[Rfam]
RNA: SAM riboswitch aptamer (S box leader)
Organism: Rossellomorea marisflavi
RNA sequence: CAAUUAUCAAGAGCGACCGAGGGAUCAGGCCCUAUGACGUCCGGCAACCUCCAUAUGGAACGGUGCUAAUUCCUGCAGGAUGUUUUUCAUUCUGAGAGAUAAGUC
Numbered sequence: 001c002a003a004u005u006a007u008c009a010a011g012a013g014c015g016a017c018c019g020a021g022g023g024a025u026c027a028g029g030c031c032c033u034a035u036g037a038c039g040u041c042c043g044g045c046a047a048c049c050u051c052c053a054u055a056u057g058g059a060a061c062g063g064u065g066c067u068a069a070u071u072c073c074u075g076c077a078g079g080a081u082g083u084u085u086u087u088c089a090u091u092c093u094g095a096g097a098g099a100u101a102a103g104u105c
Base pairs, nucleotide, nucleotide: 002104004102005101006100007099008098013042015041016040017039021032022031023030026075027074028073029072043067044066045065046064048063049062050059051058052057071097076094077093078092079091080090081089